[Rfam]
RNA: U11 spliceosomal RNA
RNA sequence: AAAAAGGGUCGGUUGGUUAAUUAUGCCACGUUCACCCUCGAUUGGUGAAUGCUGUAUGGCUAUCAAGACAUAUGGCCGACGUAAUUUAUGGAAACUUAAAGGGUUGGCUCCUUAGCCGACCCUAAA
Numbered sequence: 001a002a003a004a005a006g007g008g009u010c011g012g013u014u015g016g017u018u019a020a021u022u023a024u025g026c027c028a029c030g031u032u033c034a035c036c037c038u039c040g041a042u043u044g045g046u047g048a049a050u051g052c053u054g055u056a057u058g059g060c061u062a063u064c065a066a067g068a069c070a071u072a073u074g075g076c077c078g079a080c081g082u083a084a085u086u087u088a089u090g091g092a093a094a095c096u097u098a099a100a101g102g103g104u105u106g107g108c109u110c111c112u113u114a115g116c117c118g119a120c121c122c123u124a125a126a
Stems, first nucleotide, its partner, number of pairs: 008080005014028004029051008052075007099123001101121001103120005109115001